[Rfam]
RNA sequence: CACAGGGCUGCACCCUGUGCUGGUGUAUUGCGCCCUUUCAGGGCU
Numbered sequence: 001c002a003c004a005g006g007g008c009u010g011c012a013c014c015c016u017g018u019g020c021u022g023g024u025g026u027a028u029u030g031c032g033c034c035c036u037u038u039c040a041g042g043g044c045u
Stems, first nucleotide, its partner, number of pairs: 001019007032044005
RNA: Acido-Lenti-1 RNA